[Rfam]
Shown here is a 219-nucleotide sequence from Streptomyces griseicoloratus, a member of the family "Streptomyces RNA 1601".
Taxonomically the source falls in Streptomyces (Bacteria, Bacillati, Actinomycetes, Kitasatosporales).
About the family: Identified by deep sequencing of transcriptome at the end of exponential growth phase. Appears longer on northern blot than sequencing transcript. Streptomyces specific.
The family's RNA type in Rfam is small RNA.
A reference for the family is Vockenhuber et al. (2011), "Deep sequencing-based identification of small non-coding RNAs in Streptomyces coelicolor", RNA Biol.
The base pairs follow the family's consensus structure.
RNA sequence: AACGACCGGUCGGACACGCGUAUGCCUCACGGCGGCGGGCCCGACCCACAAGUGGAGGCUCCGAACUCCCACCUGGCCGUCCCCCGGGACGGCGGGUCACCGGUCAGGCGGUCCCGUCCCAGCGUCGGCGACGGCCCGAAAUCGCGCCCCGCGGUCCCCGCGGCGGUGCUCCGGUAGCAGUUCCAGGAGCCCCGCCUGUGAUCGUCCGGGGCAUUUUUU
Numbered sequence: 001a002a003c004g005a006c007c008g009g010u011c012g013g014a015c016a017c018g019c020g021u022a023u024g025c026c027u028c029a030c031g032g033c034g035g036c037g038g039g040c041c042c043g044a045c046c047c048a049c050a051a052g053u054g055g056a057g058g059c060u061c062c063g064a065a066c067u068c069c070c071a072c073c074u075g076g077c078c079g080u081c082c083c084c085c086g087g088g089a090c091g092g093c094g095g096g097u098c099a100c101c102g103g104u105c106a107g108g109c110g111g112u113c114c115c116g117u118c119c120c121a122g123c124g125u126c127g128g129c130g131a132c133g134g135c136c137c138g139a140a141a142u143c144g145c146g147c148c149c150c151g152c153g154g155u156c157c158c159c160g161c162g163g164c165g166g167u168g169c170u171c172c173g174g175u176a177g178c179a180g181u182u183c184c185a186g187g188a189g190c191c192c193c194g195c196c197u198g199u200g201a202u203c204g205u206c207c208g209g210g211g212c213a214u215u216u217u218u219u
Base pairs, nucleotide, nucleotide: 004105005104006103007102008101009100012042013041043098044097045096046095047094049075050074052072053071054070055069056067057066076093077092078091079090080089081088082087107136108135109134111132114128115127116126118124146212147211148210149209150208151207152204153203154202159200160199161198162196163195164194165193166192168190169189170188171187172186